[Rfam]
Source information: Shown here is a 44-nucleotide RNA from Paenibacillus bovis, a member of the family "PreQ1 (pre queuosine) riboswitch aptamer". Rfam links the family to the GO term queuosine biosynthetic process. A reference for the family is Reader et al. (2004), "Identification of four genes necessary for biosynthesis of the modified nucleoside queuosine", J Biol Chem. About the family: This family is a bacterial riboswitch that binds to the metabolite preQ1, an intermediate in the biosynthesis of the modified nucleoside queuosine from GTP. One example of this riboswitch is located in the leader of the Bacillus subtilis ykvJKLM (queCDEF) operon which encodes four genes necessary for queuosine production. Rfam 15.1 lists 873 matches to the family in 692 species.
RNA sequence: GCGGGAGAGGUUCGCGAACUCCCUCUAUAAAAAACUAAAACCGC
Numbered sequence: 001g002c003g004g005g006a007g008a009g010g011u012u013c014g015c016g017a018a019c020u021c022c023c024u025c026u027a028u029a030a031a032a033a034a035c036u037a038a039a040a041c042c043g044c
Stems, first nucleotide, its partner, number of pairs: 006026005016036001